[Rfam]
RNA sequence: CCUCUAGGGGGAAGUGAAGACCCCGUAGAGCUUUACUGCAGCCUGCAGUUGGGUUGUGAUUUUGGAUGUACAGUAUAGGUAGGAGGCAUCGAAACCCCGGCGCCAGCCGGGGUGGAGCCGCCAAUGGGAUACUACCCUUUCAAGAUUACGGCCCUAACUCAGAGAUGAGGACCCCUGUAGGUGGGCAGUUUGGGUGGGGCGCCACGCCCUUGAAAAGAUAUCAAGGGCGCCCAAAGGUUGACUCAAGUGGGUCGGAAACCCACUGAAGAGUGCAAGAGCAUAAGUCAGCCUUACGUGAUUUCGCAAAGCAAGGAAUCGCGAGACGAAAGUCGGGUCUAGCGAACCAAUGUACCUCCUUGAUGGGGGUCAUUGACUACAGAAAAGCUACCUCAGGGAUAACAGAGUCGUUUCCGGCAAGAGCACAUAUCGACCCGGAAGCUUGCUACCUCGAUGUCGGUUCUUUCCAUCCUGGCCGUGCAGCAGCGGCCAAGGGUGAGGUUGUUCGCCUAUUAAAGGAGAUCGUGAGCUGGGUUUAGACCGUCGUGAGACAGGUCGGUUACUAUCUACUAGAGGUGUUC
Numbered sequence: 001c002c003u004c005u006a007g008g009g010g011g012a013a014g015u016g017a018a019g020a021c022c023c024c025g026u027a028g029a030g031c032u033u034u035a036c037u038g039c040a041g042c043c044u045g046c047a048g049u050u051g052g053g054u055u056g057u058g059a060u061u062u063u064g065g066a067u068g069u070a071c072a073g074u075a076u077a078g079g080u081a082g083g084a085g086g087c088a089u090c091g092a093a094a095c096c097c098c099g100g101c102g103c104c105a106g107c108c109g110g111g112g113u114g115g116a117g118c119c120g121c122c123a124a125u126g127g128g129a130u131a132c133u134a135c136c137c138u139u140u141c142a143a144g145a146u147u148a149c150g151g152c153c154c155u156a157a158c159u160c161a162g163a164g165a166u167g168a169g170g171a172c173c174c175c176u177g178u179a180g181g182u183g184g185g186c187a188g189u190u191u192g193g194g195u196g197g198g199g200c201g202c203c204a205c206g207c208c209c210u211u212g213a214a215a216a217g218a219u220a221u222c223a224a225g226g227g228c229g230c231c232c233a234a235a236g237g238u239u240g241a242c243u244c245a246a247g248u249g250g251g252u253c254g255g256a257a258a259c260c261c262a263c264u265g266a267a268g269a270g271u272g273c274a275a276g277a278g279c280a281u282a283a284g285u286c287a288g289c290c291u292u293a294c295g296u297g298a299u300u301u302c303g304c305a306a307a308g309c310a311a312g313g314a315a316u317c318g319c320g321a322g323a324c325g326a327a328a329g330u331c332g333g334g335u336c337u338a339g340c341g342a343a344c345c346a347a348u349g350u351a352c353c354u355c356c357u358u359g360a361u362g363g364g365g366g367u368c369a370u371u372g373a374c375u376a377c378a379g380a381a382a383a384g385c386u387a388c389c390u391c392a393g394g395g396a397u398a399a400c401a402g403a404g405u406c407g408u409u410u411c412c413g414g415c416a417a418g419a420g421c422a423c424a425u426a427u428c429g430a431c432c433c434g435g436a437a438g439c440u441u442g443c444u445a446c447c448u449c450g451a452u453g454u455c456g457g458u459u460c461u462u463u464c465c466a467u468c469c470u471g472g473c474c475g476u477g478c479a480g481c482a483g484c485g486g487c488c489a490a491g492g493g494u495g496a497g498g499u500u501g502u503u504c505g506c507c508u509a510u511u512a513a514a515g516g517a518g519a520u521c522g523u524g525a526g527c528u529g530g531g532u533u534u535a536g537a538c539c540g541u542c543g544u545g546a547g548a549c550a551g552g553u554c555g556g557u558u559a560c561u562a563u564c565u566a567c568u569a570g571a572g573g574u575g576u577u578c
Stems, first nucleotide, its partner, number of pairs: 001573007010565003014560002022394002025391001027390002029386005035189004042181007051154016068137001078136005085119003097110005158169004192205001193203003206228006231334002237289006243269002246264006270279002294320009322331001324329001345372005351367005403444003407441001408438007418428002455530001456528004460522001461519005468493002472487005496508004536554004540549003
The family of this 578-nucleotide part of an RNA from an uncultured archaeon is "Archaeal large subunit ribosomal RNA". It is one of the family's seed sequences. The family's consensus secondary structure is taken from published work.